[Rfam]
RNA sequence: UGUGAGAAAAUAUCGCGGAUUAUACGAAAUUGUUGAUUGGAUUGAGAUUAAACGAGUUGAAAAAUACGUAAUUUUGGGGAAAUUUAAGAAAGAAUGGUGGCCACAACAGGACUUGAACCUGUGACCACUACCA
Numbered sequence: 001u002g003u004g005a006g007a008a009a010a011u012a013u014c015g016c017g018g019a020u021u022a023u024a025c026g027a028a029a030u031u032g033u034u035g036a037u038u039g040g041a042u043u044g045a046g047a048u049u050a051a052a053c054g055a056g057u058u059g060a061a062a063a064a065u066a067c068g069u070a071a072u073u074u075u076g077g078g079g080a081a082a083u084u085u086a087a088g089a090a091a092g093a094a095u096g097g098u099g100g101c102c103a104c105a106a107c108a109g110g111a112c113u114u115g116a117a118c119c120u121g122u123g124a125c126c127a128c129u130a131c132c133a
Base pairs, nucleotide, nucleotide: 013036014035015034019030020028048060049059050058095130096129097128098127099126100125104123105122107121108120109119110118
This 133-nucleotide RNA from Sulfuricurvum sp. MLSB belongs to the Rfam family "Bacterial antisense RNA HPnc0260". The source organism's lineage runs through Bacteria, Pseudomonadati, Campylobacterota, Sulfurimonadaceae and Sulfuricurvum. The family's consensus secondary structure was predicted with CMfinder.